The record is an 89-nucleotide part of an RNA from Candidatus Calditenuaceae archaeon HR02, which matches "Archaeal large subunit ribosomal RNA" in Rfam. Rfam links the family to the GO terms ribosome and structural constituent of ribosome. The family has 91 seed sequences and 2,955 matches in Rfam 15.1.
RNA sequence: GCACGGCCCGAAAGGGCAUUCCCUGCGAAGCCCCGGUGAGGGGCGAGUGGGGACAAUCCCAGGGUCGUGCACUCCGUCUUGAAUCACGG
Number, nucleotide and partner (000 for none) at each position: 001g070002c069003a068004c067005g066006g065007c064008c063009c062010g000011a000012a000013a000014g060015g059016g000017c000018a000019u000020u053021c052022c051023c050024u049025g048026c047027g000028a000029a000030g044031c000032c043033c042034c041035g000036g000037u000038g000039a000040g000041g034042g033043g032044c030045g000046a000047g026048u025049g024050g023051g022052g021053a020054c000055a000056a000057u000058c000059c015060c014061a000062g009063g008064g007065u006066c005067g004068u003069g002070c001071a000072c000073u000074c089075c088076g087077u086078c000079u000080u000081g000082a000083a000084u000085c000086a077087c076088g075089g074
A search with the family's covariance model found it, with a score of 2574 bits.